[Rfam]
RNA sequence: UGCAUGGCAUGAAAGGUGAUUUUUUCAUACUGGAGGUUCUAGCAAUAGAGCUAAAGGUUUGGAGGUCAAAUCAUCAGUGUCAUGCGUUCCGUCUCGAAACACGG
Numbered sequence: 001u002g003c004a005u006g007g008c009a010u011g012a013a014a015g016g017u018g019a020u021u022u023u024u025u026c027a028u029a030c031u032g033g034a035g036g037u038u039c040u041a042g043c044a045a046u047a048g049a050g051c052u053a054a055a056g057g058u059u060u061g062g063a064g065g066u067c068a069a070a071u072c073a074u075c076a077g078u079g080u081c082a083u084g085c086g087u088u089c090c091g092u093c094u095c096g097a098a099a100c101a102c103g104g
Stems, first nucleotide, its partner, number of pairs: 001086010015075002021070003026065001031061001037050005089104004
RNA: Archaeal large subunit ribosomal RNA, nucleotides 564 to 667
Organism: uncultured marine crenarchaeote SAT1000-49-D2